A member of the RNA family "Purine riboswitch aptamer" from Sporomusa termitida, 102 nucleotides long. Riboswitches are metabolite binding domains within certain messenger RNAs that serve as precision sensors for their corresponding targets. A search with the family's covariance model found it, with a score of 86 bits.
RNA sequence: AGGUUUAACUAUAUAUGUACUCGUAUAAUCCCGGAGAUAUGGUCUGGGAGUUUCUACAAGGGAACCGUAAAUGCCCUUACUAUGAGUGGAAGUGUCCUAUUU
Numbered sequence: 001a002g003g004u005u006u007a008a009c010u011a012u013a014u015a016u017g018u019a020c021u022c023g024u025a026u027a028a029u030c031c032c033g034g035a036g037a038u039a040u041g042g043u044c045u046g047g048g049a050g051u052u053u054c055u056a057c058a059a060g061g062g063a064a065c066c067g068u069a070a071a072u073g074c075c076c077u078u079a080c081u082a083u084g085a086g087u088g089g090a091a092g093u094g095u096c097c098u099a100u101u102u
Stems, first nucleotide, its partner, number of pairs: 018088008029049007058078005064072001